[Rfam]
RNA sequence: AAAAAAAUAAUCUCUUAUUCUUGUAUAAGCUCAUUAAUAUGGUGUGAGCGUUUCGACCAGGCAACCAUAAAUUGCCCAGGCUACAUGAAUAACUUAUUUAGAU
Numbered sequence: 001a002a003a004a005a006a007a008u009a010a011u012c013u014c015u016u017a018u019u020c021u022u023g024u025a026u027a028a029g030c031u032c033a034u035u036a037a038u039a040u041g042g043u044g045u046g047a048g049c050g051u052u053u054c055g056a057c058c059a060g061g062c063a064a065c066c067a068u069a070a071a072u073u074g075c076c077c078a079g080g081c082u083a084c085a086u087g088a089a090u091a092a093c094u095u096a097u098u099u100a101g102a103u
Base pairs, nucleotide, nucleotide: 018089019088020087022085023084024083025082029049030048031047032046033045034044058079060076061075062074063073064072

Background: Rfam assigns this 103-nucleotide RNA from Desulfosporosinus youngiae to the family "Purine riboswitch aptamer". The organism belongs to Desulfosporosinus youngiae, within Bacteria. The base pairs follow the family's consensus structure, which is taken from published work.